RNA sequence: UGGUGCCCAAUGUGGGACAGCAAGAACAAGAGACCCCAUGAGAGAUGUUACUAGAAGGGUGGACCAAAAAUUCAAAAGUGAAACAAAGGUGAUCACUGCGGGAACCUGCCACAUUGAGACCGUUGAGUCAUAGUAACAAAAAUGGGGCAAGAAAUAAGUCAGCACGAACUAUACAUGGAACAAAUGAGAAAGGCUUUAAAGACACGAGGAGUAAAGGUAAAAAUUCAGCAUUUAUUGUCUUUUUUUUUUUUUUAAUUUCAUUAAAGAGUUAUGUCCCU
Numbered sequence: 001u002g003g004u005g006c007c008c009a010a011u012g013u014g015g016g017a018c019a020g021c022a023a024g025a026a027c028a029a030g031a032g033a034c035c036c037c038a039u040g041a042g043a044g045a046u047g048u049u050a051c052u053a054g055a056a057g058g059g060u061g062g063a064c065c066a067a068a069a070a071u072u073c074a075a076a077a078g079u080g081a082a083a084c085a086a087a088g089g090u091g092a093u094c095a096c097u098g099c100g101g102g103a104a105c106c107u108g109c110c111a112c113a114u115u116g117a118g119a120c121c122g123u124u125g126a127g128u129c130a131u132a133g134u135a136a137c138a139a140a141a142a143u144g145g146g147g148c149a150a151g152a153a154a155u156a157a158g159u160c161a162g163c164a165c166g167a168a169c170u171a172u173a174c175a176u177g178g179a180a181c182a183a184a185u186g187a188g189a190a191a192g193g194c195u196u197u198a199a200a201g202a203c204a205c206g207a208g209g210a211g212u213a214a215a216g217g218u219a220a221a222a223a224u225u226c227a228g229c230a231u232u233u234a235u236u237g238u239c240u241u242u243u244u245u246u247u248u249u250u251u252u253u254a255a256u257u258u259c260a261u262u263a264a265a266g267a268g269u270u271a272u273g274u275c276c277c278u
Base pairs, nucleotide, nucleotide: 006032008030012027013026037047038046039045084125085124086123088121089120093117094116097113098112100110101109131150133148134147137145138143155198156197157196158194159193160192206253207252208251209250210249211248215240216239217238218237219236220235263278266275267274
Shown here is a 278-nucleotide sequence from Mus musculus, a member of the family "Mason-Pfizer monkey virus packaging signal". A reference for the family is Mustafa et al. (2004), "Mutational analysis of the predicted secondary RNA structure of the Mason-Pfizer monkey virus packaging signal", Virus Res. Rfam classes the family as a cis-regulatory element. The source organism's lineage runs through Eukaryota, Craniata, Mammalia, Eutheria and Mus. Rfam 15.1 lists 2,921 matches to the family in 53 species.